[Rfam]
RNA sequence: AUAACCUUUUAAAGGAAGUCCAGAGAGGCUUAAAAGGGUGUGAAGCUUAACAAAGAAUAGGGUAUUUCCUAGCCUUUGUUAAAGUGUAGUCUGAUUACACCCUGAUCCCAAUUGGUCAGGGUGUUUUUAUU
Numbered sequence: 001a002u003a004a005c006c007u008u009u010u011a012a013a014g015g016a017a018g019u020c021c022a023g024a025g026a027g028g029c030u031u032a033a034a035a036g037g038g039u040g041u042g043a044a045g046c047u048u049a050a051c052a053a054a055g056a057a058u059a060g061g062g063u064a065u066u067u068c069c070u071a072g073c074c075u076u077u078g079u080u081a082a083a084g085u086g087u088a089g090u091c092u093g094a095u096u097a098c099a100c101c102c103u104g105a106u107c108c109c110a111a112u113u114g115g116u117c118a119g120g121g122u123g124u125u126u127u128u129a130u131u
Stems, first nucleotide, its partner, number of pairs: 003039001005037005016031005049080007058071005097124011
RNA: PyrR binding site